[Rfam]
RNA: Small nucleolar RNA SNORA8
Organism: Pipistrellus kuhlii
RNA sequence: UACCCUGCAUGGGACAUGCAUUCAGCAGUUCAUUCCUGCUGGGUGUUCAAAGGAAAGUGCGAUAUAAAUUCAGAAUUGGCAUCAUUGGUUUUCUCGGCUUUGAGAAUGUUAAACCUGGUAAUUUCAUUGAUAUAGUA
Numbered sequence: 001u002a003c004c005c006u007g008c009a010u011g012g013g014a015c016a017u018g019c020a021u022u023c024a025g026c027a028g029u030u031c032a033u034u035c036c037u038g039c040u041g042g043g044u045g046u047u048c049a050a051a052g053g054a055a056a057g058u059g060c061g062a063u064a065u066a067a068a069u070u071c072a073g074a075a076u077u078g079g080c081a082u083c084a085u086u087g088g089u090u091u092u093c094u095c096g097g098c099u100u101u102g103a104g105a106a107u108g109u110u111a112a113a114c115c116u117g118g119u120a121a122u123u124u125c126a127u128u129g130a131u132a133u134a135g136u137a
Stems, first nucleotide, its partner, number of pairs: 003059001005057002015053001017051001018046011063126001066123002069120001070118004080104001082102001